Annotation
Shown here is a 168-nucleotide sequence from Saccharibacillus brassicae, a member of the family "FMN riboswitch aptamer (RFN element)". The match comes from Rfam's covariance-model search (98 bits). The base pairs follow the family's consensus structure, which is taken from published work.
[Rfam]
RNA sequence: AUACUCUUUCGGGGCGGGGCGAAAUUCCCCACCGGCGGUGACGGCGCGCGAUUCUUAGGGAUCGCCGGCCGAAGUCCGUGACCCGAGCCGUUUGUAUGACGCAGCGGCCCGGUUGACCUGGUGCGAUUCCGGGACCGACAGUUACAGUCUGGAUGGGAGAAAGAGAAA
Dot-bracket structure: ...(((((((......(((.......))).[[((((((...................................[[))))...((..........................))....(((((.......)))))]])).(((.....]]))).......)))))))...